[Rfam]
RNA sequence: ACCCAUGGCUCCAUGGGAGCGGCCGCCCGUGGCCGUCUCCCUUCCUAGGCAUGGAAGAGCAGUGCCUUGCUAAUUGGCAAAGCUUUUACCCUCUCGUGGGUAUUAGUCGUUGACUGUGGCAAGUAACAGGC
Numbered sequence: 001a002c003c004c005a006u007g008g009c010u011c012c013a014u015g016g017g018a019g020c021g022g023c024c025g026c027c028c029g030u031g032g033c034c035g036u037c038u039c040c041c042u043u044c045c046u047a048g049g050c051a052u053g054g055a056a057g058a059g060c061a062g063u064g065c066c067u068u069g070c071u072a073a074u075u076g077g078c079a080a081a082g083c084u085u086u087u088a089c090c091c092u093c094u095c096g097u098g099g100g101u102a103u104u105a106g107u108c109g110u111u112g113a114c115u116g117u118g119g120c121a122a123g124u125a126a127c128a129g130g131c
Stems, first nucleotide, its partner, number of pairs: 003054005015041004020035005068128002071125001074122003080115001083106002088101004
Rfam assigns this 131-nucleotide sequence from Bucorvus abyssinicus to the family "Small nucleolar RNA SNORA24". Rfam's curators write: ACA24 is a member of the H/ACA class of snoRNA that guide the sites of modification of uridines to pseudouridines. The base pairs follow the family's consensus structure, which was predicted with RNAfold. NCBI's taxonomy places the organism under Eukaryota, Sarcopterygii, Dinosauria, Telluraves, Bucorvus.